[Rfam]
Shown here is a 350-nucleotide RNA from Chunga burmeisteri, a member of the family "Nuclear RNase P". Ribonuclease P (RNase P) is a ubiquitous endoribonuclease, found in archaea, bacteria and eukarya as well as chloroplasts and mitochondria. Its best characterised activity is the generation of mature 5'-ends of tRNAs by cleaving the 5'-leader elements of precursor-tRNAs. Gene Ontology terms of the family: ribonuclease P activity, tRNA processing and ribonuclease P complex.

RNA sequence: UCCGGGGGAAGCUCACUGCCGAGGCCACCCACGGGGUGCGCGUCACCCACGCCCCGCCUCGGGGAAGGUCUGAGGGAGGGGCCGCCCGCGGCUCUAGCAGAGCCCCGCCCUCGAGGGGCGGGUGAGCCACCAGCAAGGCGGGGGCGCCGCGCUAUUGGGCUCGUCCGAGGGCAGGAGAAGCCGCGCAGGUUCCGGGGUGGGUGAGGUCACUUCCCCCCCUCCCACGGAACCCCGGCGGAUGCUCGUGGCCCCGCGGUGCUUUGAGACAGACUCACGGCCGGCGAUCGCUGAGUCCAAUGGGUGAGGUGGGGCACGGCCCUACAACCCAAUUCAGACUACUCUCCCCCGGA
Numbered sequence: 001u002c003c004g005g006g007g008g009a010a011g012c013u014c015a016c017u018g019c020c021g022a023g024g025c026c027a028c029c030c031a032c033g034g035g036g037u038g039c040g041c042g043u044c045a046c047c048c049a050c051g052c053c054c055c056g057c058c059u060c061g062g063g064g065a066a067g068g069u070c071u072g073a074g075g076g077a078g079g080g081g082c083c084g085c086c087c088g089c090g091g092c093u094c095u096a097g098c099a100g101a102g103c104c105c106c107g108c109c110c111u112c113g114a115g116g117g118g119c120g121g122g123u124g125a126g127c128c129a130c131c132a133g134c135a136a137g138g139c140g141g142g143g144g145c146g147c148c149g150c151g152c153u154a155u156u157g158g159g160c161u162c163g164u165c166c167g168a169g170g171g172c173a174g175g176a177g178a179a180g181c182c183g184c185g186c187a188g189g190u191u192c193c194g195g196g197g198u199g200g201g202u203g204a205g206g207u208c209a210c211u212u213c214c215c216c217c218c219c220u221c222c223c224a225c226g227g228a229a230c231c232c233c234g235g236c237g238g239a240u241g242c243u244c245g246u247g248g249c250c251c252c253g254c255g256g257u258g259c260u261u262u263g264a265g266a267c268a269g270a271c272u273c274a275c276g277g278c279c280g281g282c283g284a285u286c287g288c289u290g291a292g293u294c295c296a297a298u299g300g301g302u303g304a305g306g307u308g309g310g311g312c313a314c315g316g317c318c319c320u321a322c323a324a325c326c327c328a329a330u331u332c333a334g335a336c337u338a339c340u341c342u343c344c345c346c347c348g349g350a
Base pairs, nucleotide, nucleotide: 001350002349003348004347007344008343009342012305013304014303015302016301017300020061021060022059023058024057034048035047036046037045038044070334071333072332073331074330080279081278082277083276090104091103092102093101094100105121106120107119108118109117110116122275123274124273125272126271128269143260144259145258146257147256148255149254150253151252306322307321308320309319310318311317312316